Nucleotides: 113
Base pairs, nucleotide, nucleotide: 007057008056009055010054011053012052015047016046020044021043022041023038024037025036026035027034058083059082060081061080062079063078064077065076085108087111094106095105096104
Number, partner (000 for none) and nucleotide at each position: 001000c002000g003000a004000a005000a006000g007057u008056g009055u010054g011053c012052c013000u014000a015047g016046g017000g018000u019000u020044c021043c022041g023038c024037a025036u026035g027034c028000a029000g030000c031000a032000a033000g034027g035026c036025a037024u038023g039000g040000a041022c042000u043021g044020g045000u046016c047015c048000a049000a050000g051000u052012g053011g054010c055009a056008c057007a058083g059082g060081u061080g062079c063078c064077u065076u066000u067000a068000g069000u070000u071000u072000a073000a074000g075000a076065g077064a078063g079062g080061c081060a082059c083058u084000a085108c086000a087111c088000c089000g090000u091000a092000u093000a094106g095105g096104g097000a098000u099000a100000a101000a102000a103000g104096c105095c106094c107000a108085g109000g110000c111087g112000g113000a